Source information:
A member of the RNA family "tRNA" from Salix brachista, 69 nucleotides long. The family's consensus secondary structure is taken from published work. Gene Ontology term of the family: triplet codon-amino acid adaptor activity. It is annotated as a transfer RNA. The match comes from Rfam's covariance-model search (49 bits).
[Rfam]
RNA sequence: GUCGCUUUGGCCUAGUGGUUAAGGCGUGUGCCUGUUAUGAACUCGGGAGUUCGAAUCUCCCAAGCGACA
Numbered sequence: 001g002u003c004g005c006u007u008u009g010g011c012c013u014a015g016u017g018g019u020u021a022a023g024g025c026g027u028g029u030g031c032c033u034g035u036u037a038u039g040a041a042c043u044c045g046g047g048a049g050u051u052c053g054a055a056u057c058u059c060c061c062a063a064g065c066g067a068c069a
Stems, first nucleotide, its partner, number of pairs: 001068007010025004027040001031039001045061005